[Rfam]
Small nucleolar RNA SNORA11: a 129-nucleotide RNA sequence from Bos taurus. Rfam's curators write: U107 (SNORA11) is a member of the H/ACA class of snoRNAs that guide the sites of modification of uridines to pseudouridines. This snoRNA was identified by RT-PCR from blood cells and its expression confirmed by Northern blot analysis. The family has 35 seed sequences and 2,014 matches in Rfam 15.1. The source organism's lineage runs through Eukaryota, Metazoa, Teleostomi, Bovidae and Bos. The family's RNA type in Rfam is H/ACA-box small nucleolar RNA. A search with the family's covariance model found it, with a score of 118 bits.
RNA sequence: GUGGUGUGCUCAGAGCAGGGGGCCUGAAGAAAUGGCUCACUGUUUACAACACACCCAACAGGAAUCUGGGUUCAUUGUGACAGGAGACACAAAAUGUGUGGCCUUUCCAUGAACAAGUACCCAACACAU
Numbered sequence: 001g002u003g004g005u006g007u008g009c010u011c012a013g014a015g016c017a018g019g020g021g022g023c024c025u026g027a028a029g030a031a032a033u034g035g036c037u038c039a040c041u042g043u044u045u046a047c048a049a050c051a052c053a054c055c056c057a058a059c060a061g062g063a064a065u066c067u068g069g070g071u072u073c074a075u076u077g078u079g080a081c082a083g084g085a086g087a088c089a090c091a092a093a094a095u096g097u098g099u100g101g102c103c104u105u106u107c108c109a110u111g112a113a114c115a116a117g118u119a120c121c122c123a124a125c126a127c128a129u
Base pairs, nucleotide, nucleotide: 003055004054005053006052007051008050013045014044015043016042017041018040020038021037022036023035024034069122070121072119076115077114078113081111082110084104086102088100089099090098091097